[Rfam]
RNA sequence: GGUAGUACCAAAUAAUCGAAUGAGACCUUGGAGGACUGAAGUGGAGAAGGGUUUCGUGUGAACAGUGGUUGAUCACGAGUUAGUCGGUCCUAAGUUCAAGGCGAAAGCCGAAAAUUUUCAAGUAAAAAACAAAAAUUCCAAACUACAUAAAAAAGCCAAUUAUACAUAUACAUACAUAAAAAAGCCAAUUAUAAUACACUUGAAUAAUUUUGAACGAAAGGGAAUACGGUUCCAAUUUCGUAACUUGUUGAGUAUCCGUUUGUUAUUAAAUAUGGGCCUCGUGCUCAUCCUGGCAACAGGAACGACCAUAAAGAAGCCGUCGAGAGAUAUCGGAAGAGUUUUCUUUUCUGUUUUAUAGCCGUACUACCAUGGAAGUCUUUCGCAGAGAGAUAUGGUAGAUGGGCUAGAAGAGCAUGACAUAUACUGUUGUGUCGAUAUUUUCUCCUCGGACCUUGAAAAUUUAUGGUGGGGACACGCAAACUUCUUAACUGGCCGUACCAAUAUCCGCAGCUGGUCUCCAAGGUGAAGAGUCUCUAGUCGA
Numbered sequence: 001g002g003u004a005g006u007a008c009c010a011a012a013u014a015a016u017c018g019a020a021u022g023a024g025a026c027c028u029u030g031g032a033g034g035a036c037u038g039a040a041g042u043g044g045a046g047a048a049g050g051g052u053u054u055c056g057u058g059u060g061a062a063c064a065g066u067g068g069u070u071g072a073u074c075a076c077g078a079g080u081u082a083g084u085c086g087g088u089c090c091u092a093a094g095u096u097c098a099a100g101g102c103g104a105a106a107g108c109c110g111a112a113a114a115u116u117u118u119c120a121a122g123u124a125a126a127a128a129a130c131a132a133a134a135a136u137u138c139c140a141a142a143c144u145a146c147a148u149a150a151a152a153a154a155g156c157c158a159a160u161u162a163u164a165c166a167u168a169u170a171c172a173u174a175c176a177u178a179a180a181a182a183a184g185c186c187a188a189u190u191a192u193a194a195u196a197c198a199c200u201u202g203a204a205u206a207a208u209u210u211u212g213a214a215c216g217a218a219a220g221g222g223a224a225u226a227c228g229g230u231u232c233c234a235a236u237u238u239c240g241u242a243a244c245u246u247g248u249u250g251a252g253u254a255u256c257c258g259u260u261u262g263u264u265a266u267u268a269a270a271u272a273u274g275g276g277c278c279u280c281g282u283g284c285u286c287a288u289c290c291u292g293g294c295a296a297c298a299g300g301a302a303c304g305a306c307c308a309u310a311a312a313g314a315a316g317c318c319g320u321c322g323a324g325a326g327a328u329a330u331c332g333g334a335a336g337a338g339u340u341u342u343c344u345u346u347u348c349u350g351u352u353u354u355a356u357a358g359c360c361g362u363a364c365u366a367c368c369a370u371g372g373a374a375g376u377c378u379u380u381c382g383c384a385g386a387g388a389g390a391u392a393u394g395g396u397a398g399a400u401g402g403g404c405u406a407g408a409a410g411a412g413c414a415u416g417a418c419a420u421a422u423a424c425u426g427u428u429g430u431g432u433c434g435a436u437a438u439u440u441u442c443u444c445c446u447c448g449g450a451c452c453u454u455g456a457a458a459a460u461u462u463a464u465g466g467u468g469g470g471g472a473c474a475c476g477c478a479a480a481c482u483u484c485u486u487a488a489c490u491g492g493c494c495g496u497a498c499c500a501a502u503a504u505c506c507g508c509a510g511c512u513g514g515u516c517u518c519c520a521a522g523g524u525g526a527a528g529a530g531u532c533u534c535u536a537g538u539c540g541a
Base pairs, nucleotide, nucleotide: 016032017031019029020028034539035538036537037536043519044518045517046516049499050498054078055077056076057075058074063071064070085495086494087493089221090220094215095214096112100109101108102107117207118206225242226241227240228239229238245491247489248488250484251483252481253480259300260299261298262297263296264295307465308464309463310462311461312460317449318448319447322444323443324442325441326440327439330435331434332352333351335349336348337347356406357405358404359403360402366396367395368394369393370392371391376386377385378384413431414430415429416428417427418426419425505514506513521533522532523531524530